[Rfam]
RNA sequence: UACCGAUGUUUUCCUCGGCAGUUAACUGCAGCCGGUUAUUGAAUUCCUCGGCAGUUAACUGCCGAGAGGGCAA
Numbered sequence: 001u002a003c004c005g006a007u008g009u010u011u012u013c014c015u016c017g018g019c020a021g022u023u024a025a026c027u028g029c030a031g032c033c034g035g036u037u038a039u040u041g042a043a044u045u046c047c048u049c050g051g052c053a054g055u056u057a058a059c060u061g062c063c064g065a066g067a068g069g070g071c072a073a
Stems, first nucleotide, its partner, number of pairs: 012069002015066001016064014
A member of the RNA family "MIR2629 microRNA precursor family" from Medicago truncatula, 73 nucleotides long. The match comes from Rfam's covariance-model search (65 bits). Its family is annotated with miRNA-mediated post-transcriptional gene silencing and RISC complex in the Gene Ontology. The organism belongs to Medicago, within Eukaryota.